[Rfam]
RNA sequence: AGUGGUGGUAGAGGCGCAAAAACCAUUAGUAUGUUAUAGGAGGGCGAUGAGGUCCGGUGAUUAUAGCUGAAAGGGGAAUUUGCCGAAGUAUAAUCAGUAACUCACUACUAUUAUACUGGACCUACAUUGAAUAAAUGUAGAGCUGUCACACAAUCGAUCCCAAUGGUUGUGUGGAGAACUAUCUCACGU
Numbered sequence: 001a002g003u004g005g006u007g008g009u010a011g012a013g014g015c016g017c018a019a020a021a022a023c024c025a026u027u028a029g030u031a032u033g034u035u036a037u038a039g040g041a042g043g044g045c046g047a048u049g050a051g052g053u054c055c056g057g058u059g060a061u062u063a064u065a066g067c068u069g070a071a072a073g074g075g076g077a078a079u080u081u082g083c084c085g086a087a088g089u090a091u092a093a094u095c096a097g098u099a100a101c102u103c104a105c106u107a108c109u110a111u112u113a114u115a116c117u118g119g120a121c122c123u124a125c126a127u128u129g130a131a132u133a134a135a136u137g138u139a140g141a142g143c144u145g146u147c148a149c150a151c152a153a154u155c156g157a158u159c160c161c162a163a164u165g166g167u168u169g170u171g172u173g174g175a176g177a178a179c180u181a182u183c184u185c186a187c188g189u
Base pairs, nucleotide, nucleotide: 007183008182009181010180011179016083017082018081019080020079023076024075033067034066035065036064037063038062039061087117088116089115090114091113092112093111094110096109097108098107099106118144119143122140123139124138125137126136127135128134146174147173148172149171150170151169152168153167154166155165
RNA: Lysine riboswitch aptamer
Organism: Anaerobacillus alkalidiazotrophicus